Shown here is a 245-nucleotide sequence from Paecilomyces variotii, a member of the family "Small nucleolar RNA snR191". Its family is annotated with nucleolus and RNA processing in the Gene Ontology. A reference for the family is Badis et al. (2003), "A snoRNA that guides the two most conserved pseudouridine modifications within rRNA confers a growth advantage in yeast", RNA. NCBI's taxonomy places the organism under Eukaryota, Dikarya, Ascomycota, Eurotiales, Paecilomyces.

RNA sequence: UUCCAUUGCUAAGUCAAGGCUUCUUCCGUGCAAUUCCUUUGCCGCCUCUCUAUGGAAGUUUUGUCUGUUACAGCUUUGGUAGAUCAACACUGGCCCGCCGCCUGGCUUCUUUCUGAACUCAGGUAGACCGGCCCUCGUUUUGAGGGCCGGUCACAAAGGGCCAUGUCGUGCUUUGUUUGAGUUGAGGGCUGCUUCUGCUGUCCGGUGGCUUCAUAGCAGUUCUCUUAGUAACAUCCCACACAUUC
Numbered sequence: 001u002u003c004c005a006u007u008g009c010u011a012a013g014u015c016a017a018g019g020c021u022u023c024u025u026c027c028g029u030g031c032a033a034u035u036c037c038u039u040u041g042c043c044g045c046c047u048c049u050c051u052a053u054g055g056a057a058g059u060u061u062u063g064u065c066u067g068u069u070a071c072a073g074c075u076u077u078g079g080u081a082g083a084u085c086a087a088c089a090c091u092g093g094c095c096c097g098c099c100g101c102c103u104g105g106c107u108u109c110u111u112u113c114u115g116a117a118c119u120c121a122g123g124u125a126g127a128c129c130g131g132c133c134c135u136c137g138u139u140u141u142g143a144g145g146g147c148c149g150g151u152c153a154c155a156a157a158g159g160g161c162c163a164u165g166u167c168g169u170g171c172u173u174u175g176u177u178u179g180a181g182u183u184g185a186g187g188g189c190u191g192c193u194u195c196u197g198c199u200g201u202c203c204g205g206u207g208g209c210u211u212c213a214u215a216g217c218a219g220u221u222c223u224c225u226u227a228g229u230a231a232c233a234u235c236c237c238a239c240a241c242a243u244u245c
Base pairs, nucleotide, nucleotide: 003079004078005077017066018065019064020063023058024057025056026055027054030042031041032040033039091163092162093161094160095159096158100124101123102122103121104120105119107117108116109115126152127151128150129149130148131147132146133145134144135143136142137141168239169238170237174233175232176231184224185223186222187221190218191217192216193215195208196207197206198205199204